[Rfam]
RNA: MIR2617 microRNA precursor family
RNA sequence: AUAGUAGUGUGACAUGCUCGUUGGGUUGUACUCUGGUGUUGUGUGUUUAAUUAUUAUUAAAUUACUUUUGGGUAACGGGGUGAUACACUUAA
Number, nucleotide and partner (000 for none) at each position: 001a000002u092003a000004g000005u000006a089007g088008u087009g086010u085011g084012a000013c082014a081015u080016g000017c079018u078019c077020g076021u075022u074023g000024g000025g000026u000027u000028g000029u000030a000031c000032u000033c000034u000035g000036g000037u000038g000039u000040u000041g000042u000043g000044u000045g000046u000047u000048u000049a000050a000051u000052u000053a000054u000055u000056a000057u000058u000059a000060a000061a000062u000063u000064a000065c000066u000067u000068u000069u000070g000071g000072g000073u000074a022075a021076c020077g019078g018079g017080g015081u014082g013083a000084u011085a010086c009087a008088c007089u006090u000091a000092a002